[Rfam]
RNA: S10-Clostridia ribosomal protein leader
Nucleotides: 103
Base pairs, nucleotide, nucleotide: 014075015074016073018072019071020070021069025064026063027062028061082102083101084100085099086098087097088096089095
Number, partner (000 for none) and nucleotide at each position: 001000a002000c003000g004000u005000u006000g007000c008000g009000a010000u011000g012000a013000u014075g015074c016073g017000g018072g019071a020070g021069g022000u023000u024000g025064c026063u027062g028061a029000u030000a031000c032000a033000c034000c035000c036000g037000g038000c039000u040000c041000c042000u043000u044000u045000g046000c047000c048000a049000u050000g051000g052000a053000g054000c055000a056000g057000g058000u059000g060000u061028u062027c063026a064025g065000g066000g067000g068000a069021u070020u071019u072018c073016c074015g075014c076000g077000g078000a079000g080000u081000a082102u083101g084100u085099c086098c087097g088096a089095u090000a091000c092000u093000a094000a095089a096088u097087u098086g099085g100084g101083c102082g103000a